[Rfam]
RNA sequence: CCGAGAGGACGACCUCCCCCAGAUACGGGUGAAAUUUCGGGACGACCCGA
Numbered sequence: 001c002c003g004a005g006a007g008g009a010c011g012a013c014c015u016c017c018c019c020c021a022g023a024u025a026c027g028g029g030u031g032a033a034a035u036u037u038c039g040g041g042a043c044g045a046c047c048c049g050a
Stems, first nucleotide, its partner, number of pairs: 003018001005016004037050005
Dot-bracket structure: ..(.((((....)))).)..................(((((....)))))